[Rfam]
RNA sequence: UAUCUGUAUGGCAAUGAUGUCUGCCUUGAACCGCUAAAAUGCUGAUGACGUCUACUUUUUG
Numbered sequence: 001u002a003u004c005u006g007u008a009u010g011g012c013a014a015u016g017a018u019g020u021c022u023g024c025c026u027u028g029a030a031c032c033g034c035u036a037a038a039a040u041g042c043u044g045a046u047g048a049c050g051u052c053u054a055c056u057u058u059u060u061g
Base pairs, nucleotide, nucleotide: 010025011024012023013022016052017051018050019049020048021047033042034041

A member of the RNA family "Fluoride riboswitch aptamer (crcB RNA motif)" from Pustulibacterium marinum, 61 nucleotides long. It scores 48 bits against the family's covariance model. The source organism's lineage runs through Bacteria, Pseudomonadati, Flavobacteriia, Flavobacteriales and Pustulibacterium.